[Rfam]
Source information
Rfam assigns this 140-nucleotide RNA sequence from Nothobranchius furzeri to the family "U4 spliceosomal RNA". A reference for the family is Plaschka et al. (2017), "Structure of a pre-catalytic spliceosome", Nature. A search with the family's covariance model found it, with a score of 104 bits. By type it is a spliceosomal small nuclear RNA.
RNA sequence: AUCCUUGCGCAGUGGCAGUAUUAUAGCCUAUGAGGUUCAUCUGACGUGUGAUUAUUGCUAGUUGAAAACUUUACCCAAUACCCACCUUGGUGAUUUGAAAUAUAAUCGUCAAAGGCUAUUUUUGACAGUCUCAAUGGAGA
Numbered sequence: 001a002u003c004c005u006u007g008c009g010c011a012g013u014g015g016c017a018g019u020a021u022u023a024u025a026g027c028c029u030a031u032g033a034g035g036u037u038c039a040u041c042u043g044a045c046g047u048g049u050g051a052u053u054a055u056u057g058c059u060a061g062u063u064g065a066a067a068a069c070u071u072u073a074c075c076c077a078a079u080a081c082c083c084a085c086c087u088u089g090g091u092g093a094u095u096u097g098a099a100a101u102a103u104a105a106u107c108g109u110c111a112a113a114g115g116c117u118a119u120u121u122u123u124g125a126c127a128g129u130c131u132c133a134a135u136g137g138a139g140a
Base pairs, nucleotide, nucleotide: 020052021051022050023049024048026047027046034042035041085115086114087112088111089110090109091108092107093106094105095104129140130139131138132137